mir-3473 microRNA precursor family: a 74-nucleotide RNA from Jaculus jaculus. A search with the family's covariance model found it, with a score of 76 bits.

[Rfam]
RNA sequence: ACCACUAAGCCAUCUCUCCAGCCCAAGAAAAUGUUUUAAAAUUUAUUGUGGGGCUGGAGAGAUGGCUUAGUGGU
Numbered sequence: 001a002c003c004a005c006u007a008a009g010c011c012a013u014c015u016c017u018c019c020a021g022c023c024c025a026a027g028a029a030a031a032u033g034u035u036u037u038a039a040a041a042u043u044u045a046u047u048g049u050g051g052g053g054c055u056g057g058a059g060a061g062a063u064g065g066c067u068u069a070g071u072g073g074u
Base pairs, nucleotide, nucleotide: 002073003072004071005070006069007068008067009066010065011064012063013062014061015060016059017058018057019056020055021054022053023052024051